[Rfam]
RNA sequence: CACUCUGAUGAUGUUUAAAAUACUUUCGUUCUCCUGAGCUAAUAAAUGCUGAAAAAUUUAUGGAGACCUGAGCUGAAGAGUU
Numbered sequence: 001c002a003c004u005c006u007g008a009u010g011a012u013g014u015u016u017a018a019a020a021u022a023c024u025u026u027c028g029u030u031c032u033c034c035u036g037a038g039c040u041a042a043u044a045a046a047u048g049c050u051g052a053a054a055a056a057u058u059u060a061u062g063g064a065g066a067c068c069u070g071a072g073c074u075g076a077a078g079a080g081u082u
Base pairs, nucleotide, nucleotide: 003080004079005078006077
Dot-bracket structure: ..((((......................................................................))))..
The record is an 82-nucleotide sequence from Corchorus olitorius, which matches "Small nucleolar RNA Z159/U59" in Rfam. The family's consensus secondary structure was predicted with PFOLD. For this family Rfam cites "The high diversity of snoRNAs in plants: identification and comparative study of 120 snoRNA genes from Oryza sativa" (Chen et al., Nucleic Acids Res, 2003). Taxonomically the source falls in Corchorus (Eukaryota, Tracheophyta, Mesangiospermae, Grewioideae). A search with the family's covariance model found it, with a score of 56 bits.